[Rfam]
RNA sequence: AUCUUCUGAGAGGCUGGUGUAGCUACAGAGAAACAAACUUCCUUCAGAGAAC
Numbered sequence: 001a002u003c004u005u006c007u008g009a010g011a012g013g014c015u016g017g018u019g020u021a022g023c024u025a026c027a028g029a030g031a032a033a034c035a036a037a038c039u040u041c042c043u044u045c046a047g048a049g050a051a052c
Stems, first nucleotide, its partner, number of pairs: 002051001004049006012039002015036001017034002019026002
This 52-nucleotide RNA from Carlito syrichta belongs to the Rfam family "MAT2A 3'UTR stem loop C". Lineage of the source: Eukaryota > Chordata > Amniota > Tarsiiformes > Carlito. The literature on the family includes a 2011 paper in Genome Res by Parker et al., "New families of human regulatory RNA structures identified by comparative analysis of vertebrate genomes". The family's consensus secondary structure is taken from published work.